[Rfam]
RNA: Plastid-ccsA-ndhD-1 3UTR RNA
RNA sequence: AUGUUGUUGAGAACCAUUUGAAUCAAGUAGCAAUUCAAAUGGUUCUCAAAAA
Number, nucleotide and partner (000 for none) at each position: 001a000002u000003g000004u000005u000006g000007u049008u048009g047010a046011g045012a044013a043014c042015c041016a040017u039018u038019u037020g036021a035022a034023u033024c000025a000026a000027g000028u000029a000030g000031c000032a000033a023034u022035u021036c020037a019038a018039a017040u016041g015042g014043u013044u012045c011046u010047c009048a008049a007050a000051a000052a000